[Rfam]
RNA sequence: UGGUAGAUGCACCCUGAUUUAAUCCCUGGCUUAACCGUCAGGGAUUUUUUUA
Numbered sequence: 001u002g003g004u005a006g007a008u009g010c011a012c013c014c015u016g017a018u019u020u021a022a023u024c025c026c027u028g029g030c031u032u033a034a035c036c037g038u039c040a041g042g043g044a045u046u047u048u049u050u051u052a
Stems, first nucleotide, its partner, number of pairs: 002013003023044008
RNA: Nitrogen stress-induced RNA 1